[Rfam]
RNA sequence: GACGGUCCUCGACAGUGGCUCACGGAUCCGCUGCGCGCUGCGGCGCGCACAGGCUCCGUGGGCUUCGAUCGAAGGCCGAA
Numbered sequence: 001g002a003c004g005g006u007c008c009u010c011g012a013c014a015g016u017g018g019c020u021c022a023c024g025g026a027u028c029c030g031c032u033g034c035g036c037g038c039u040g041c042g043g044c045g046c047g048c049a050c051a052g053g054c055u056c057c058g059u060g061g062g063c064u065u066c067g068a069u070c071g072a073a074g075g076c077c078g079a080a
Stems, first nucleotide, its partner, number of pairs: 003078005009072004017064010028053002
The record is an 80-nucleotide RNA sequence from Kocuria coralli, which matches "Actino-pnp RNA" in Rfam. The base pairs follow the family's consensus structure, which is taken from published work. By type it is a cis-regulatory element. Taxonomically the source falls in Kocuria (Bacteria, Actinomycetota, Actinomycetes, Micrococcales).